Rfam assigns this 99-nucleotide RNA from Subdoligranulum sp. APC924/74 to the family "SAM riboswitch aptamer (S box leader)".
Taxonomically the source falls in Subdoligranulum (Bacteria, Bacillati, Clostridia, Eubacteriales).
RNA sequence: AACUUAUCAAGAGUGGCAGAGGGAACAGGCCCUAUGAAGCCCGGCAACCUGCGCGCAAGCGUAAGGUGCCAAUUCCUGCGGGGAACCGAAAGAUAAGCG
Numbered sequence: 001a002a003c004u005u006a007u008c009a010a011g012a013g014u015g016g017c018a019g020a021g022g023g024a025a026c027a028g029g030c031c032c033u034a035u036g037a038a039g040c041c042c043g044g045c046a047a048c049c050u051g052c053g054c055g056c057a058a059g060c061g062u063a064a065g066g067u068g069c070c071a072a073u074u075c076c077u078g079c080g081g082g083g084a085a086c087c088g089a090a091a092g093a094u095a096a097g098c099g
Stems, first nucleotide, its partner, number of pairs: 003097006013042001015041003021032003026078004043070004048066002050063004074091001079088003